[Rfam]
RNA sequence: GUAUUUAAGCAGAAGCGCCCCGCUUCUCACCUGAUCGACGCUGAAGUUGACAGGUUAUCGGUUCUGGAUGACGGGAUCAAAAAGUGUGGGCGUCUGCCUGCACUUUUUUGCUUUU
Numbered sequence: 001g002u003a004u005u006u007a008a009g010c011a012g013a014a015g016c017g018c019c020c021c022g023c024u025u026c027u028c029a030c031c032u033g034a035u036c037g038a039c040g041c042u043g044a045a046g047u048u049g050a051c052a053g054g055u056u057a058u059c060g061g062u063u064c065u066g067g068a069u070g071a072c073g074g075g076a077u078c079a080a081a082a083a084g085u086g087u088g089g090g091c092g093u094c095u096g097c098c099u100g101c102a103c104u105u106u107u108u109u110g111c112u113u114u115u
Stems, first nucleotide, its partner, number of pairs: 011027006029055003035050005085102007
Shown here is a 115-nucleotide RNA from Melghirimyces algeriensis, a member of the family "Ribosomal protein L20 leader".
The source organism's lineage runs through Bacteria, Bacillati, Bacillota, Bacilli and Melghirimyces.
The family's RNA type in Rfam is cis-regulatory leader.
From the family's description: This family is a putative r-protein leader autoregulatory structure found in B. subtilis and other low-GC Gram-positive bacteria.
Gene Ontology term of the family: regulation of gene expression.